Description
A member of the RNA family "Small nucleolar RNA psi18S-841/snoR66" from Hermetia illucens, 134 nucleotides long. From the family's description: psi18S-841 is a member of the H/ACA class of snoRNA. This family is responsible for guiding the modification of uridine 841 in Drosophila 18S rRNA to pseudouridine. Rfam 15.1 lists 108 matches to the family in 46 species. Rfam links the family to the GO terms RNA processing and nucleolus. The family's RNA type in Rfam is H/ACA-box small nucleolar RNA. The source organism's lineage runs through Eukaryota, Protostomia, Neoptera, Hermetiinae and Hermetia.

RNA sequence: AGCAAGGGCACUCUGUGUCAUUUAAUUCCCUUAAAAUGGUUACAAUUUGUUACCUUGCUAGAGGAAAAUUGCAAAUCUUAUUCAUCGCCGAUUGUAGGUUAGAUUGGCGACUGUAAAGGUGUUUGCGACAUAUU
Numbered sequence: 001a002g003c004a005a006g007g008g009c010a011c012u013c014u015g016u017g018u019c020a021u022u023u024a025a026u027u028c029c030c031u032u033a034a035a036a037u038g039g040u041u042a043c044a045a046u047u048u049g050u051u052a053c054c055u056u057g058c059u060a061g062a063g064g065a066a067a068a069u070u071g072c073a074a075a076u077c078u079u080a081u082u083c084a085u086c087g088c089c090g091a092u093u094g095u096a097g098g099u100u101a102g103a104u105u106g107g108c109g110a111c112u113g114u115a116a117a118g119g120u121g122u123u124u125g126c127g128a129c130a131u132a133u134u
Stems, first nucleotide, its partner, number of pairs: 002058006010050002014044003017040007065134002070127003073122001081116002085110005091104002